[Rfam]
Shown here is a 245-nucleotide sequence from Phascolarctos cinereus, a member of the family "Small nucleolar RNA SNORD17". Rfam classes the family as a C/D-box small nucleolar RNA. The source organism's lineage runs through Eukaryota, Opisthokonta, Vertebrata, Gnathostomata and Phascolarctos.

RNA sequence: GUGGAAUGAUGAUGACGUUCAUCCAUUCUCCAAGCGUGCUGCCUGUCCUCCUGGCCUGCUUUGGGACUCUCGUUCUGGGGGCUCUGAGCUAUGCAGCCACCACACUUCGUGAAGUCUUCUAGCGUUCUGUUGGGGACAGUGGGUGGGUGUGGGCCUGUGAUCAGGAACGAGACAGUGGCAGCCAAGAUGGUACCCUUCUGUUUGGGGUCCCAUUGGGCUGAGACGAAGGCUGAUGGCCUGAUCAC
Dot-bracket structure: .........((((...(((....(.(((.(...((..((((((((((.(((((.(..((((.((..(((((.....)))))).).))))...((((.(.......(((..(..((((((.((((...))))))))))..)..).))......).)))))..)))))....))))).).))))...(((((..((((.......))))..)))))..))...)..))).).....)))...)))).
Numbered sequence: 001g002u003g004g005a006a007u008g009a010u011g012a013u014g015a016c017g018u019u020c021a022u023c024c025a026u027u028c029u030c031c032a033a034g035c036g037u038g039c040u041g042c043c044u045g046u047c048c049u050c051c052u053g054g055c056c057u058g059c060u061u062u063g064g065g066a067c068u069c070u071c072g073u074u075c076u077g078g079g080g081g082c083u084c085u086g087a088g089c090u091a092u093g094c095a096g097c098c099a100c101c102a103c104a105c106u107u108c109g110u111g112a113a114g115u116c117u118u119c120u121a122g123c124g125u126u127c128u129g130u131u132g133g134g135g136a137c138a139g140u141g142g143g144u145g146g147g148u149g150u151g152g153g154c155c156u157g158u159g160a161u162c163a164g165g166a167a168c169g170a171g172a173c174a175g176u177g178g179c180a181g182c183c184a185a186g187a188u189g190g191u192a193c194c195c196u197u198c199u200g201u202u203u204g205g206g207g208u209c210c211c212a213u214u215g216g217g218c219u220g221a222g223a224c225g226a227a228g229g230c231u232g233a234u235g236g237c238c239u240g241a242u243c244a245c
Stems, first nucleotide, its partner, number of pairs: 010244004017237003024229001026227003030222001034218002038182004042177001043175005049166005055159001058089004063084001064082001067081005093158004098153001106146002108143001111140001114137006121131004186214005193207004
Gene Ontology terms of the family: RNA processing and nucleolus.